DUF1874 RNA: a 97-nucleotide sequence. It is annotated as a cis-regulatory element. Pairs were carried over by alignment from the consensus structure, which is taken from published work. Rfam's curators put it in the seed alignment.

RNA sequence: GUCAAACCCGCAGGAAGGUGGUCAUCCAGAGGUAAGAGUGGGCAAAGCCCACCGCCACCUUCCUCCUGCCAAAAGGCAGGUUUGCGGGGAAGGAGGC
Numbered sequence: 001g002u003c004a005a006a007c008c009c010g011c012a013g014g015a016a017g018g019u020g021g022u023c024a025u026c027c028a029g030a031g032g033u034a035a036g037a038g039u040g041g042g043c044a045a046a047g048c049c050c051a052c053c054g055c056c057a058c059c060u061u062c063c064u065c066c067u068g069c070c071a072a073a074a075g076g077c078a079g080g081u082u083u084g085c086g087g088g089g090a091a092g093g094a095g096g097c
Stems, first nucleotide, its partner, number of pairs: 007088007014062009036053001038052005065080005